[Rfam]
RNA: mir-172 microRNA precursor family
Organism: Vanilla planifolia
RNA sequence: UUUAUUGCCGAUGCAGCAUCAUCAAGAUUCUCAAUCCCAGUACAGGAGCAAAGAAAGAAUAAAACAUCGGAAAAGUUUGUGAAUCUUGAUGAUGCUACACCAGCAAAAAG
Dot-bracket structure: .........(.((.((((((((((((((((.((............................................)).)))))))))))))))).)).).........